RNA: Guanidine-II riboswitch aptamer (mini-ykkC)
RNA sequence: GUGCGGGGACGACCCCGCGCCUCGCGCCAGUUCCGGGGACGACCCCA
Number, nucleotide and partner (000 for none) at each position: 001g020002u019003g018004c017005g016006g015007g014008g013009a000010c000011g000012a000013c008014c007015c006016c005017g004018c003019g002020c001021c000022u000023c000024g000025c000026g000027c000028c000029a000030g000031u000032u000033c000034c000035g046036g045037g044038g043039a000040c000041g000042a000043c038044c037045c036046c035047a000